[Rfam]
RNA sequence: AAAGGGAAUGCCGAAAACCUUUAACAAAGUAGACA
Numbered sequence: 001a002a003a004g005g006g007a008a009u010g011c012c013g014a015a016a017a018c019c020u021u022u023a024a025c026a027a028a029g030u031a032g033a034c035a
Stems, first nucleotide, its partner, number of pairs: 002021004010034001012032001
Record summary
The record is a 35-nucleotide sequence, which matches "DUF805b RNA" in Rfam. The family is grouped with related families in Rfam's "DUF805 clan". Rfam classes the family as a cis-regulatory element. The base pairs follow the family's consensus structure, which is taken from published work.